[Rfam]
Annotation:
Shown here is a 118-nucleotide sequence from Corchorus olitorius, a member of the family "MIR408 microRNA precursor family".

RNA sequence: AGAAAUUAAGAUGUGAGAGACAGGGAACAGGCUGAGCAUGGAUGGAUCUGUCAACAGGUUUCUGUUGUUGCUCCGCCCAUGCACUGCCUCUUCCCUGGCUCUCCCUCCAUUCUUAAUA
Numbered sequence: 001a002g003a004a005a006u007u008a009a010g011a012u013g014u015g016a017g018a019g020a021c022a023g024g025g026a027a028c029a030g031g032c033u034g035a036g037c038a039u040g041g042a043u044g045g046a047u048c049u050g051u052c053a054a055c056a057g058g059u060u061u062c063u064g065u066u067g068u069u070g071c072u073c074c075g076c077c078c079a080u081g082c083a084c085u086g087c088c089u090c091u092u093c094c095c096u097g098g099c100u101c102u103c104c105c106u107c108c109a110u111u112c113u114u115a116a117u118a
Base pairs, nucleotide, nucleotide: 017101018100019099021097022096023095024094025093026092027091029089030088031087032086034084036082037081038080039079040078041077045073046072

Gene Ontology terms of the family: RISC complex and miRNA-mediated post-transcriptional gene silencing. The source organism's lineage runs through Eukaryota, Streptophyta, Embryophyta, Spermatophyta and Corchorus. The family has 8 seed sequences and 299 matches in Rfam 15.1.